The record is a 145-nucleotide part of an RNA from Chionoecetes opilio, which matches "Eukaryotic large subunit ribosomal RNA" in Rfam. The family's consensus secondary structure is taken from published work. Lineage of the source: Eukaryota > Metazoa > Panarthropoda > Brachyura > Chionoecetes.

RNA sequence: GGGAAAUUUUUAAUUCAAAGUGGGGCAAAUAAUUUAAAUUAUUUUCCCCAGGCCCUUUGUCAAAGGGAAAAAACCAAAAAAAACAACCCAAUACCAAAGCCCGCAUCUAAAUACGGCAUGAAUGGUUUUAACGAGAUUCCCACUG
Numbered sequence: 001g002g003g004a005a006a007u008u009u010u011u012a013a014u015u016c017a018a019a020g021u022g023g024g025g026c027a028a029a030u031a032a033u034u035u036a037a038a039u040u041a042u043u044u045u046c047c048c049c050a051g052g053c054c055c056u057u058u059g060u061c062a063a064a065g066g067g068a069a070a071a072a073a074c075c076a077a078a079a080a081a082a083a084c085a086a087c088c089c090a091a092u093a094c095c096a097a098a099g100c101c102c103g104c105a106u107c108u109a110a111a112u113a114c115g116g117c118a119u120g121a122a123u124g125g126u127u128u129u130a131a132c133g134a135g136a137u138u139c140c141c142a143c144u145g
Stems, first nucleotide, its partner, number of pairs: 001141005007135001008133001009019001030041004